[Rfam]
The family of this 81-nucleotide sequence from Crocodylus porosus is "Mammalian CPEB3 ribozyme". The base pairs follow the family's consensus structure, which is taken from published work. On this family, see Teixeira et al., Nature 2004: "Autocatalytic RNA cleavage in the human beta-globin pre-mRNA promotes transcription termination". Its family is annotated with RNA nuclease activity in the Gene Ontology.
RNA sequence: AGAGGUUGCAAGGUCGAGGCUAUAGCAAAAGCGCUUAUAGCACGGCCCUGUCAGAUUCUAAUGAAAUCUGCAAAUUCUGCU
Numbered sequence: 001a002g003a004g005g006u007u008g009c010a011a012g013g014u015c016g017a018g019g020c021u022a023u024a025g026c027a028a029a030a031g032c033g034c035u036u037a038u039a040g041c042a043c044g045g046c047c048c049u050g051u052c053a054g055a056u057u058c059u060a061a062u063g064a065a066a067u068c069u070g071c072a073a074a075u076u077c078u079g080c081u
Stems, first nucleotide, its partner, number of pairs: 013048001018047004024081004029076002031043001033041001052070006